This 242-nucleotide sequence from Clostridium thermosuccinogenes belongs to the Rfam family "T-box leader".
The family has 48 seed sequences and 19,395 matches in Rfam 15.1.
About the family: Uncharged tRNA acts as the effector for transcription antitermination of genes in the T-box leader family.
It is annotated as a cis-regulatory leader.
The base pairs follow the family's consensus structure, which is taken from published work.
RNA sequence: AAAAAAGCAAUGACCGGGAAAUAGUAACAGCAGUUCCAUCCUUAAGAGAGCUUUCGUUUGGUGCGAGAAAGUAGGAUACGGACGCUGUGAAUUCAUCCUGAUAGCUGCACACUCAAAGGUGAGUGCCGAGUAGGCUGUGCCGGAAUCCAUCCGUUAUAGUGGAGGGGCAAUAAUUGUUGCUCGCUGAGGUUGCAUAUGCAACGAAGACAAGGUGGUACCGCGAAUAAUAAUUCGCCCCUGUU
Numbered sequence: 001a002a003a004a005a006a007g008c009a010a011u012g013a014c015c016g017g018g019a020a021a022u023a024g025u026a027a028c029a030g031c032a033g034u035u036c037c038a039u040c041c042u043u044a045a046g047a048g049a050g051c052u053u054u055c056g057u058u059u060g061g062u063g064c065g066a067g068a069a070a071g072u073a074g075g076a077u078a079c080g081g082a083c084g085c086u087g088u089g090a091a092u093u094c095a096u097c098c099u100g101a102u103a104g105c106u107g108c109a110c111a112c113u114c115a116a117a118g119g120u121g122a123g124u125g126c127c128g129a130g131u132a133g134g135c136u137g138u139g140c141c142g143g144a145a146u147c148c149a150u151c152c153g154u155u156a157u158a159g160u161g162g163a164g165g166g167g168c169a170a171u172a173a174u175u176g177u178u179g180c181u182c183g184c185u186g187a188g189g190u191u192g193c194a195u196a197u198g199c200a201a202c203g204a205a206g207a208c209a210a211g212g213u214g215g216u217a218c219c220g221c222g223a224a225u226a227a228u229a230a231u232u233c234g235c236c237c238c239u240g241u242u
Stems, first nucleotide, its partner, number of pairs: 007105002015100004027088005039076003050072006108139004113134002141153003189202005209239001211237002220235005